A member of the RNA family "SAM (S-adenosyl methionine) riboswitch aptamer" from Corynebacterium timonense, 121 nucleotides long. SAM-IV is a mRNA element that regulates gene expression via direct sensing of S-adenosylmethionine (SAM or AdoMet). SAM-IV riboswitches share conserved nucleotide positions with the previously described SAM-I riboswitches sequence analysis and molecular recognition experiments suggest that SAM-I and SAM-IV riboswitches share similar ligand binding sites, but have different scaffolds. A reference for the family is Weinberg et al. (2008), "The aptamer core of SAM-IV riboswitches mimics the ligand-binding site of SAM-I riboswitches", RNA. Rfam 15.1 lists 2,360 matches to the family in 1,305 species. Its family is annotated with regulation of gene expression and S-adenosylmethionine metabolic process in the Gene Ontology.

RNA sequence: GAUCACGAAGCCCGACGUUCACAGCCUCCCGGCUCGUCGGCUGGCAACCGCGCUCAUCGCGCACGGUGCCCCCGGGAGAAGAUCGGCCGGCGUCGGCAACCGCGCGCCGGAAGUGCGAUUC
Number, nucleotide and partner (000 for none) at each position: 001g084002a083003u082004c081005a000006c000007g000008a000009a042010g000011c000012c040013c039014g038015a037016c036017g000018u000019u000020c000021a000022c000023a034024g033025c000026c000027u000028c000029c000030c000031g000032g000033c024034u023035c000036g016037u015038c014039g013040g012041c000042u009043g070044g069045c068046a000047a000048c066049c065050g064051c000052g062053c061054u000055c000056a000057u000058c000059g000060c000061g053062c052063a000064c050065g049066g048067u000068g045069c044070c043071c000072c000073c000074g000075g000076g000077a000078g000079a000080a000081g004082a003083u002084c001085g000086g000087c110088c109089g108090g107091c106092g105093u104094c000095g000096g101097c000098a000099a000100c000101c096102g000103c000104g093105c092106g091107c090108c089109g088110g087111a000112a000113g000114u000115g000116c000117g000118a000119u000120u000121c000